The family of this 129-nucleotide RNA from Chelonia mydas is "Small nucleolar RNA SNORA40". Rfam classes the family as an H/ACA-box small nucleolar RNA. A reference for the family is Ofengand and Bakin (1997), "Mapping to nucleotide resolution of pseudouridine residues in large subunit ribosomal RNAs from representative eukaryotes, prokaryotes, archaebacteria, mitochondria and chloroplasts", J Mol Biol.
RNA sequence: AGCACUUCAUUCUUUUGUUUUUGUCUAACAUGGACAGAAGCUUCGAAUUCAGUGCUAAUAAUAAAAUGACUUUUUUGCAACCCACAACUGAUAACAAUAUGAGUUGUGCUACUUGUAAGUGUGGACAGU
Numbered sequence: 001a002g003c004a005c006u007u008c009a010u011u012c013u014u015u016u017g018u019u020u021u022u023g024u025c026u027a028a029c030a031u032g033g034a035c036a037g038a039a040g041c042u043u044c045g046a047a048u049u050c051a052g053u054g055c056u057a058a059u060a061a062u063a064a065a066a067u068g069a070c071u072u073u074u075u076u077g078c079a080a081c082c083c084a085c086a087a088c089u090g091a092u093a094a095c096a097a098u099a100u101g102a103g104u105u106g107u108g109c110u111a112c113u114u115g116u117a118a119g120u121g122u123g124g125a126c127a128g129u
Base pairs, nucleotide, nucleotide: 001056002055003054004053005052006051009048011046017041018040019039020038021037022036023035024034070123074119075118076117077116083108084107085106086105087104088103089102091100092099

The match comes from Rfam's covariance-model search (54 bits). Gene Ontology terms of the family: RNA processing and nucleolus. Lineage of the source: Eukaryota > Eumetazoa > Teleostomi > Durocryptodira > Chelonia.